[Rfam]
RNA: Ribosomal protein L19 leader
Organism: Heyndrickxia sporothermodurans
RNA sequence: ACGAUGUUCCGCUGCAUGGAUAGAUUUGUAUGAGCAUCUG
Number, nucleotide and partner (000 for none) at each position: 001a000002c000003g038004a037005u036006g035007u034008u033009c032010c000011g000012c000013u030014g029015c028016a027017u000018g025019g000020a000021u000022a000023g000024a000025u018026u000027u016028g015029u014030a013031u000032g009033a008034g007035c006036a005037u004038c003039u000040g000